Rfam assigns this 127-nucleotide RNA sequence from Flavobacterium sp. 9AF to the family "Bacteroidete tryptophan peptide leader RNA". Pairs were carried over by alignment from the consensus structure, which is taken from published work. The family's RNA type in Rfam is cis-regulatory leader.
[Rfam]
RNA sequence: UUGUCACAAUAUAAAUAAUUAUGAUUUCAAUUACAAAUAAUACUUGGUGGUGGAAAAACUUACGUCAGUCGUCGUGAGCGAAUCCUCCUAUAGUAUAAUUUAAAAACAUACAUAGAAAAGGCUUGUC
Number, nucleotide and partner (000 for none) at each position: 001u000002u000003g000004u000005c000006a000007c000008a000009a000010u000011a000012u000013a000014a000015a000016u000017a000018a000019u000020u000021a000022u000023g000024a000025u000026u000027u000028c000029a000030a000031u000032u000033a000034c000035a000036a100037a099038u098039a000040a096041u095042a094043c093044u092045u000046g089047g088048u000049g086050g085051u000052g083053g000054a000055a000056a000057a000058a000059c080060u000061u078062a072063c071064g070065u000066c000067a000068g000069u000070c064071g063072u062073c000074g000075u000076g000077a000078g061079c000080g059081a000082a000083u052084c000085c050086u049087c000088c047089u046090a000091u000092a044093g043094u042095a041096u040097a000098a038099u037100u036101u000102a000103a000104a000105a000106a000107c000108a000109u000110a000111c000112a000113u000114a000115g000116a000117a000118a000119a000120g000121g000122c000123u000124u000125g000126u000127c000